[Rfam]
RNA sequence: GGCCUGUGAUGCUUAAUUAAUUGUCCGUACCAUCUGAGAAUUCUCUCUGAUGCAUUCUUCUAAUAUCGAAUCUGAGGCCU
Numbered sequence: 001g002g003c004c005u006g007u008g009a010u011g012c013u014u015a016a017u018u019a020a021u022u023g024u025c026c027g028u029a030c031c032a033u034c035u036g037a038g039a040a041u042u043c044u045c046u047c048u049g050a051u052g053c054a055u056u057c058u059u060c061u062a063a064u065a066u067c068g069a070a071u072c073u074g075a076g077g078c079c080u
Stems, first nucleotide, its partner, number of pairs: 001079004
Rfam assigns this 80-nucleotide RNA from Senna tora to the family "small nucleolar RNA snoR117". The family's consensus secondary structure was predicted with RNAalifold. A reference for the family is Chen and Wu (2009), "Mining small RNA sequencing data: a new approach to identify small nucleolar RNAs in Arabidopsis", Nucleic Acids Res. Rfam links the family to the GO terms RNA processing and nucleolus. Rfam 15.1 lists 419 matches to the family in 211 species. The organism belongs to Senna, within Eukaryota.